[Rfam]
RNA sequence: AUCACAUUUUGGCCUUUUGGCUAAGAUUAAGUGUAGAAUCUGUUCUUAUCAGUUUAAUAUCUGAUACAUUCUCUAUCUGAGGACAAUAUAUUAAAUGGAUUUUUGGAAUUAGGAGAUGGAGUAGAAGCUUGCUCCCUCCAUGCAUCGACCUGGUAUCGCAGUACUUCUAGGAACGGUGCACCCCCC
Numbered sequence: 001a002u003c004a005c006a007u008u009u010u011g012g013c014c015u016u017u018u019g020g021c022u023a024a025g026a027u028u029a030a031g032u033g034u035a036g037a038a039u040c041u042g043u044u045c046u047u048a049u050c051a052g053u054u055u056a057a058u059a060u061c062u063g064a065u066a067c068a069u070u071c072u073c074u075a076u077c078u079g080a081g082g083a084c085a086a087u088a089u090a091u092u093a094a095a096u097g098g099a100u101u102u103u104u105g106g107a108a109u110u111a112g113g114a115g116a117u118g119g120a121g122u123a124g125a126a127g128c129u130u131g132c133u134c135c136c137u138c139c140a141u142g143c144a145u146c147g148a149c150c151u152g153g154u155a156u157c158g159c160a161g162u163a164c165u166u167c168u169a170g171g172a173a174c175g176g177u178g179c180a181c182c183c184c185c186c
Stems, first nucleotide, its partner, number of pairs: 007026003011022004047066006069083005112139004124135001126133002142179006149171005
Rfam assigns this 186-nucleotide RNA from Canis lupus to the family "U2 spliceosomal RNA".
Rfam 15.1 lists 71,512 matches to the family in 2,642 species.
Rfam links the family to the GO terms pre-mRNA branch point binding, mRNA branch site recognition and U2 snRNP.
On this family, see Thomas et al., Nucleic Acids Res 1990: "The spliceosomal snRNAs of Caenorhabditis elegans".
The source organism's lineage runs through Eukaryota, Teleostomi, Sarcopterygii, Eutheria and Canis lupus.